[Rfam]
RNA sequence: CUCUGACACGCUCCAACGGUGGCCAGUCUGGCCCUCACAUUUGGCAGUGGUGCAAUGAC
Numbered sequence: 001c002u003c004u005g006a007c008a009c010g011c012u013c014c015a016a017c018g019g020u021g022g023c024c025a026g027u028c029u030g031g032c033c034c035u036c037a038c039a040u041u042u043g044g045c046a047g048u049g050g051u052g053c054a055a056u057g058a059c
Base pairs, nucleotide, nucleotide: 007049008048009047012044013043015042016041018035019034021033022032023031024030025029
Selenocysteine insertion sequence 3: a 59-nucleotide RNA from Desulfocapsa sulfexigens. A search with the family's covariance model found it, with a score of 64 bits.